Notes: The family of this 126-nucleotide RNA from Pseudomonas mangrovi is "rmf RNA". Pairs were carried over by alignment from the consensus structure, which is taken from published work. The source organism's lineage runs through Bacteria, Pseudomonadota, Pseudomonadales, Pseudomonadaceae and Pseudomonas. The family's RNA type in Rfam is cis-regulatory element.
RNA sequence: UUCGUUAGAACUCCAUACAGGCAUCAUCGCAACGAUGACGCCGGAACCCGCAACGCCGGCAACGGGUUCCACCGGCAGCCAAGGCAGCCAGCCUCCCUCGGAGGCAAACGGGACAUAACAGUCACA
Numbered sequence: 001u002u003c004g005u006u007a008g009a010a011c012u013c014c015a016u017a018c019a020g021g022c023a024u025c026a027u028c029g030c031a032a033c034g035a036u037g038a039c040g041c042c043g044g045a046a047c048c049c050g051c052a053a054c055g056c057c058g059g060c061a062a063c064g065g066g067u068u069c070c071a072c073c074g075g076c077a078g079c080c081a082a083g084g085c086a087g088c089c090a091g092c093c094u095c096c097c098u099c100g101g102a103g104g105c106a107a108a109c110g111g112g113a114c115a116u117a118a119c120a121g122u123c124a125c126a
Base pairs, nucleotide, nucleotide: 021042022040024038025037026036027035028034045068046067047066048065049064050063074089075088076087078085079084091105092104093103094102095101